[Rfam]
RNA sequence: AAAUAUACUGAGUGGCCAGAUUAUUAUGAUCUCGGAACGCAUAAUAAUUUGGCCACUCAGUAUGUGU
Dot-bracket structure: ...((((((((((((((.((((((((((...........)))))))))).))))))))))))))...
mir-9256 microRNA precursor family: a 67-nucleotide RNA from Pipistrellus kuhlii. Rfam links the family to the GO terms miRNA-mediated post-transcriptional gene silencing and RISC complex. The source organism's lineage runs through Eukaryota, Bilateria, Teleostomi, Euteleostomi and Pipistrellus.